[Rfam]
RNA sequence: GCAGGGCAGUGUGCGCAGUGUCUGUCUGUGUUUGUGGAGCGUCUAGCUUGUGUUCUGCAUGCCGGCAGCUCCAUACACACGUAACCUGCAGCCAGAGAUUGACAUGAGAUCAUAGUACUGGUCUAGUGAUGUCUAAAAGACACCCCUACCACUGGCCAGCCUCCAAUCUCUCAGACACAA
Numbered sequence: 001g002c003a004g005g006g007c008a009g010u011g012u013g014c015g016c017a018g019u020g021u022c023u024g025u026c027u028g029u030g031u032u033u034g035u036g037g038a039g040c041g042u043c044u045a046g047c048u049u050g051u052g053u054u055c056u057g058c059a060u061g062c063c064g065g066c067a068g069c070u071c072c073a074u075a076c077a078c079a080c081g082u083a084a085c086c087u088g089c090a091g092c093c094a095g096a097g098a099u100u101g102a103c104a105u106g107a108g109a110u111c112a113u114a115g116u117a118c119u120g121g122u123c124u125a126g127u128g129a130u131g132u133c134u135a136a137a138a139g140a141c142a143c144c145c146c147u148a149c150c151a152c153u154g155g156c157c158a159g160c161c162u163c164c165a166a167u168c169u170c171u172c173a174g175a176c177a178c179a180a
Stems, first nucleotide, its partner, number of pairs: 013089003029081003033077002035073006043065002046062001049059003105173005118159006125153004130142004
RNA: Small nucleolar RNA SNORA23